Source information:
This 128-nucleotide RNA sequence from Hominibacterium faecale belongs to the Rfam family "Molybdenum/Tungsten riboswitch aptamer (Moco RNA motif)". Rfam links the family to the GO terms molybdenum ion binding, tungstate binding and regulation of gene expression.

Nucleotides: 128
Base pairs, nucleotide, nucleotide: 011114013112015110016109019064020063021062022061023060024059027057028056029055030054034051035050036049069094070093071092072091073090074089075088076087077086078085079084095105096104
Number, partner (000 for none) and nucleotide at each position: 001000a002000u003000u004000c005000a006000a007000u008000a009000c010000a011114c012000a013112a014000u015110c016109c017000g018000a019064u020063u021062u022061c023060c024059g025000a026000g027057c028056u029055c030054c031000u032000a033000c034051g035050g036049c037000u038000u039000u040000u041000g042000a043000a044000a045000a046000a047000a048000u049036g050035c051034u052000a053000u054030g055029g056028a057027g058000g059024c060023g061022g062021a063020a064019a065000c066000g067000u068000u069094g070093g071092g072091u073090u074089u075088a076087u077086g078085u079084g080000g081000a082000a083000a084079c085078a086077u087076a088075u089074g090073a091072g092071c093070c094069u095105c096104c097000c098000g099000c100000g101000u102000u103000u104096g105095g106000a107000a108000a109016g110015g111000u112013u113000c114011g115000u116000g117000u118000a119000c120000c121000a122000u123000u124000u125000c126000g127000a128000a